[Rfam]
RNA sequence: UCGGGGGUGCGUCUGGAAUUCCGCUAGUUCUGAACUAUUCGUGAUUGGAAGAAGUUCACUACUAGCAGAACUCAGUCGCGCACCCGG
Numbered sequence: 001u002c003g004g005g006g007g008u009g010c011g012u013c014u015g016g017a018a019u020u021c022c023g024c025u026a027g028u029u030c031u032g033a034a035c036u037a038u039u040c041g042u043g044a045u046u047g048g049a050a051g052a053a054g055u056u057c058a059c060u061a062c063u064a065g066c067a068g069a070a071c072u073c074a075g076u077c078g079c080g081c082a083c084c085c086g087g
Base pairs, nucleotide, nucleotide: 003085004084005083007081008080009079010078011077013075014074015073016072019070020069021068023066024065025064026063027062028061031058032057033056034055035054036053038052039051
The record is an 87-nucleotide RNA from Polypterus senegalus, which matches "mir-726 microRNA precursor family" in Rfam. Pairs were carried over by alignment from the consensus structure, which was predicted with RNAalifold.